[Rfam]
Shown here is a 57-nucleotide RNA sequence from Nicotiana sylvestris, a member of the family "Plastid-rps18 3UTR RNA". For this family Rfam cites "Retrograde signaling in plants: A critical review focusing on the GUN pathway and beyond" (Richter et al., Plant Commun, 2023). The family has 238 seed sequences and 1,462 matches in Rfam 15.1. The organism belongs to Nicotiana, within Eukaryota. Rfam classes the family as a cis-regulatory element. A search with the family's covariance model found it, with a score of 69 bits.
RNA sequence: UACAUACAUUUUACGGUUAAGAAGCAACUGUCUCUUGUACAGAUCGUGUAUUAAUCU
Numbered sequence: 001u002a003c004a005u006a007c008a009u010u011u012u013a014c015g016g017u018u019a020a021g022a023a024g025c026a027a028c029u030g031u032c033u034c035u036u037g038u039a040c041a042g043a044u045c046g047u048g049u050a051u052u053a054a055u056c057u
Stems, first nucleotide, its partner, number of pairs: 018037005024031002